Rfam assigns this 64-nucleotide RNA from Trifolium medium to the family "MIR5291 microRNA precursor family".
The match comes from Rfam's covariance-model search (56 bits).
RNA sequence: GAUGGGUUAAAUCCAAUCCAUUAACAUCCAUAUAGUAUAUUGGAUGGAUUGGAUGGAUUUUUUU
Numbered sequence: 001g002a003u004g005g006g007u008u009a010a011a012u013c014c015a016a017u018c019c020a021u022u023a024a025c026a027u028c029c030a031u032a033u034a035g036u037a038u039a040u041u042g043g044a045u046g047g048a049u050u051g052g053a054u055g056g057a058u059u060u061u062u063u064u
Base pairs, nucleotide, nucleotide: 004060005059006058007057008056011054012053013052014051015050016049017048018047019046020045021044022043026038027037029035

Overview: Lineage of the source: Eukaryota > Euphyllophyta > rosids > fabids > Trifolium.